RNA sequence: UUUUUGCGAGAGUGAUGGAAGUGGAGCUCUUUUUUUGAGAGACUUUUUCAGUCUAUCAAAAAAAAGCGGGAACGGACAGCACGACCCGGA
Numbered sequence: 001u002u003u004u005u006g007c008g009a010g011a012g013u014g015a016u017g018g019a020a021g022u023g024g025a026g027c028u029c030u031u032u033u034u035u036u037g038a039g040a041g042a043c044u045u046u047u048u049c050a051g052u053c054u055a056u057c058a059a060a061a062a063a064a065a066g067c068g069g070g071a072a073c074g075g076a077c078a079g080c081a082c083g084a085c086c087c088g089g090a
Stems, first nucleotide, its partner, number of pairs: 012082003016078002021073002026067003032062007
RNA: Flavo-1 RNA